[Rfam]
RNA sequence: CUUGAGGGAGGGGAUGAUCCCUCAGUCCAGAUUGCAAGAGAGUGCAGGCCAGGCCGAGGGACCCAACCAGUGCACA
Numbered sequence: 001c002u003u004g005a006g007g008g009a010g011g012g013g014a015u016g017a018u019c020c021c022u023c024a025g026u027c028c029a030g031a032u033u034g035c036a037a038g039a040g041a042g043u044g045c046a047g048g049c050c051a052g053g054c055c056g057a058g059g060g061a062c063c064c065a066a067c068c069a070g071u072g073c074a075c076a
Stems, first nucleotide, its partner, number of pairs: 003074002008071001011068002016063001018061006025054003030049001032047005
Notes: Shown here is a 76-nucleotide RNA sequence from Myotis myotis, a member of the family "mir-9193 microRNA precursor family". NCBI's taxonomy places the organism under Eukaryota, Teleostomi, Dipnotetrapodomorpha, Amniota, Myotis.